Rfam assigns this 301-nucleotide RNA sequence from Plasmopara halstedii to the family "RNase MRP". The organism belongs to Plasmopara, within Eukaryota. Rfam's curators write: RNase MRP is an enzymatically active ribonucleoprotein with two distinct roles in eukaryotes. In mitochondria it plays a direct role in the initiation of mitochondrial DNA replication. In the nucleus it is involved in precursor rRNA processing, where it cleaves the internal transcribed spacer 1 between 18S and 5.8S rRNAs. A search with the family's covariance model found it, with a score of 114 bits.
[Rfam]
RNA sequence: GAACACGAUUUAGAAUUGCGAAGUCAAGUGGGUCCGAUUUCUUGUGUAUAAUGCACUAGAGAUUUGGACGGCUUGGGGAAAUUCCCCGGACACCAGGGCAGAGAGUGCCAGCGUUCAAACGCAGACUCCCUUAGCUAUGAAGCUUUGCGAAGAUGGCCUGCUUCUAUGGGCCGGAGCUUUCGGCAGAUUUGCAAGGACUGAUGGUCAUACUAAAAGUUAUGCAAUUGGCUCAGUGGCACAUAGUGAACGUCGUGUCACUGCUGCUUGGAGCUAACCCGACGGGGAUUACUCAUGUUGUGUU
Numbered sequence: 001g002a003a004c005a006c007g008a009u010u011u012a013g014a015a016u017u018g019c020g021a022a023g024u025c026a027a028g029u030g031g032g033u034c035c036g037a038u039u040u041c042u043u044g045u046g047u048a049u050a051a052u053g054c055a056c057u058a059g060a061g062a063u064u065u066g067g068a069c070g071g072c073u074u075g076g077g078g079a080a081a082u083u084c085c086c087c088g089g090a091c092a093c094c095a096g097g098g099c100a101g102a103g104a105g106u107g108c109c110a111g112c113g114u115u116c117a118a119a120c121g122c123a124g125a126c127u128c129c130c131u132u133a134g135c136u137a138u139g140a141a142g143c144u145u146u147g148c149g150a151a152g153a154u155g156g157c158c159u160g161c162u163u164c165u166a167u168g169g170g171c172c173g174g175a176g177c178u179u180u181c182g183g184c185a186g187a188u189u190u191g192c193a194a195g196g197a198c199u200g201a202u203g204g205u206c207a208u209a210c211u212a213a214a215a216g217u218u219a220u221g222c223a224a225u226u227g228g229c230u231c232a233g234u235g236g237c238a239c240a241u242a243g244u245g246a247a248c249g250u251c252g253u254g255u256c257a258c259u260g261c262u263g264c265u266u267g268g269a270g271c272u273a274a275c276c277c278g279a280c281g282g283g284g285a286u287u288a289c290u291c292a293u294g295u296u297g298u299g300u301u
Base pairs, nucleotide, nucleotide: 002301003300004299005298006297007296008295009294011292014226015225016224017223018222019221024076025075026074027073028072029071040060041059042058044056045055046054047053048052080287081286082285084284085283086282087281097109098108099107100106111122112121113120114119124198126196131194132193134192135191137189142184143183144182147177148176155172156171157170158169159168160167228271229270230269231268233266